This 439-nucleotide RNA sequence from Halomonas huangheensis belongs to the Rfam family "cspA thermoregulator".
RNA sequence: AGCGCUCAGACCGAGCAUGCUGAUCGCAGUAGGUUAGCAAGUCGAACAUAUCUUCAGUGGUCAUCGAAGCCUGAUGCAUCGGUUUCCCGGGGGAAAGUUUCUUGUUUUACCCACUGCUACUCGGGUAUUUCCCGGUAAUUCAAUUGCUAUUCGAGGAAUUCGAUAAUGGCUACUGGUACAGUUAAGUGGUUCAACGACACUAAAGGCUUCGGCUUCAUUUCUCCGGACGACAACGGUGACGACCUGUUCGCUCACUUCUCCGAGAUUCAGGCUGACGGCUUCAAAUCUCUGCAGGACGGCCAGAAGGUUUCCUUCGACGUCACUCAGGGCAAGAAAGGCCUGCAGGCUUCCAACAUCAAGGUCAUCGACUGAUCUGAUGCUGGUCCAGGGCUAACGCUCUGAAUGCAGAAGAAGGCUCGCCAUUGGCGGGCCUUCUUUG
Numbered sequence: 001a002g003c004g005c006u007c008a009g010a011c012c013g014a015g016c017a018u019g020c021u022g023a024u025c026g027c028a029g030u031a032g033g034u035u036a037g038c039a040a041g042u043c044g045a046a047c048a049u050a051u052c053u054u055c056a057g058u059g060g061u062c063a064u065c066g067a068a069g070c071c072u073g074a075u076g077c078a079u080c081g082g083u084u085u086c087c088c089g090g091g092g093g094a095a096a097g098u099u100u101c102u103u104g105u106u107u108u109a110c111c112c113a114c115u116g117c118u119a120c121u122c123g124g125g126u127a128u129u130u131c132c133c134g135g136u137a138a139u140u141c142a143a144u145u146g147c148u149a150u151u152c153g154a155g156g157a158a159u160u161c162g163a164u165a166a167u168g169g170c171u172a173c174u175g176g177u178a179c180a181g182u183u184a185a186g187u188g189g190u191u192c193a194a195c196g197a198c199a200c201u202a203a204a205g206g207c208u209u210c211g212g213c214u215u216c217a218u219u220u221c222u223c224c225g226g227a228c229g230a231c232a233a234c235g236g237u238g239a240c241g242a243c244c245u246g247u248u249c250g251c252u253c254a255c256u257u258c259u260c261c262g263a264g265a266u267u268c269a270g271g272c273u274g275a276c277g278g279c280u281u282c283a284a285a286u287c288u289c290u291g292c293a294g295g296a297c298g299g300c301c302a303g304a305a306g307g308u309u310u311c312c313u314u315c316g317a318c319g320u321c322a323c324u325c326a327g328g329g330c331a332a333g334a335a336a337g338g339c340c341u342g343c344a345g346g347c348u349u350c351c352a353a354c355a356u357c358a359a360g361g362u363c364a365u366c367g368a369c370u371g372a373u374c375u376g377a378u379g380c381u382g383g384u385c386c387a388g389g390g391c392u393a394a395c396g397c398u399c400u401g402a403a404u405g406c407a408g409a410a411g412a413a414g415g416c417u418c419g420c421c422a423u424u425g426g427c428g429g430g431c432c433u434u435c436u437u438u439g
Stems, first nucleotide, its partner, number of pairs: 004016004025225002028222002031219001037215001040214004047206001049204001056201004062196001064194001066192002069190003075158001077156001079154003088146003091112003123132003160176003164172001229321003241249002254308004259304002262301001266293001268291004274287002325342003329339002343376004381401001388399004410436012

Notes: Rfam links the family to the GO terms regulation of translation and response to temperature stimulus.